Shown here is a 143-nucleotide sequence from Roseateles aquatilis, a member of the family "ZMP/ZTP riboswitch aptamer (pfl RNA motif)".
A search with the family's covariance model found it, with a score of 39 bits.

RNA sequence: CACGCUUCGCGCAACUGGCGAUCAGGGCGCCCUUCCUCGUGAUCCGCACGGGGCUGGCGUCGCCCGAGGUGGGUCACCACCGGGAAGCGCGAGCGGCCGGAGACGUUCUCCGGUUGUCCGUGCCGUUCGCCUGGGCCGCCGUC
Number, nucleotide and partner (000 for none) at each position: 001c000002a000003c096004g000005c000006u093007u092008c091009g090010c089011g088012c087013a000014a000015c084016u083017g131018g130019c129020g128021a127022u000023c000024a000025g000026g000027g000028c000029g000030c000031c000032c000033u000034u000035c000036c000037u000038c000039g000040u000041g000042a000043u000044c000045c000046g000047c000048a000049c000050g000051g000052g000053g000054c000055u000056g000057g000058c000059g000060u000061c000062g000063c000064c000065c000066g000067a000068g000069g080070u079071g078072g077073g000074u000075c000076a000077c072078c071079a070080c069081c000082g000083g016084g015085a000086a000087g012088c011089g010090c009091g008092a007093g006094c000095g000096g003097c000098c000099g000100g000101a000102g000103a000104c000105g000106u000107u000108c000109u000110c000111c000112g000113g000114u000115u000116g000117u000118c000119c000120g000121u000122g136123c135124c134125g000126u000127u021128c020129g019130c018131c017132u000133g000134g124135g123136c122137c000138g000139c000140c000141g000142u000143c000